[Rfam]
Source information
Shown here is a 92-nucleotide sequence from Pipistrellus kuhlii, a member of the family "mir-9261 microRNA precursor family". Rfam links the family to the GO terms RISC complex and miRNA-mediated post-transcriptional gene silencing. The organism belongs to Pipistrellus, within Eukaryota. Rfam 15.1 lists 196 matches to the family in 3 species. The family's consensus secondary structure was predicted with RNAalifold.
RNA sequence: AACAAUUUGUCCCAUGUCCUGUGGCGUUUUAAAAAAGUCCAGAAAAAUCAGGACUUUUUUAAAAAGCCACAGGACACGGGACAAAUUGUUAA
Number, nucleotide and partner (000 for none) at each position: 001a090002a089003c088004a087005a086006u085007u084008u083009g082010u081011c080012c079013c078014a000015u076016g075017u074018c073019c072020u071021g070022u069023g068024g067025c066026g000027u064028u063029u062030u061031a060032a059033a058034a057035a056036a000037g000038u000039c000040c000041a000042g000043a000044a000045a000046a000047a000048u000049c000050a000051g000052g000053a000054c000055u000056u035057u034058u033059u032060u031061a030062a029063a028064a027065a000066g025067c024068c023069a022070c021071a020072g019073g018074a017075c016076a015077c000078g013079g012080g011081a010082c009083a008084a007085a006086u005087u004088g003089u002090u001091a000092a000